[Rfam]
RNA sequence: GUAGUUGGAUUCACAUCAAUCCAUAUGUGUUGAGGUGGAUUAGAGUGGAAUUUAAUUCAAGUUUCAUUCCAAUCCAUCUCAAUACAUGUGGAUUGAUGUGAAUCCGACU
Numbered sequence: 001g002u003a004g005u006u007g008g009a010u011u012c013a014c015a016u017c018a019a020u021c022c023a024u025a026u027g028u029g030u031u032g033a034g035g036u037g038g039a040u041u042a043g044a045g046u047g048g049a050a051u052u053u054a055a056u057u058c059a060a061g062u063u064u065c066a067u068u069c070c071a072a073u074c075c076a077u078c079u080c081a082a083u084a085c086a087u088g089u090g091g092a093u094u095g096a097u098g099u100g101a102a103u104c105c106g107a108c109u
Stems, first nucleotide, its partner, number of pairs: 004108011016096017035077007043069001045067003
Shown here is a 109-nucleotide RNA from Sorghum bicolor, a member of the family "MIR5565 microRNA precursor family". The family has 7 seed sequences and 3,346 matches in Rfam 15.1. It scores 109 bits against the family's covariance model.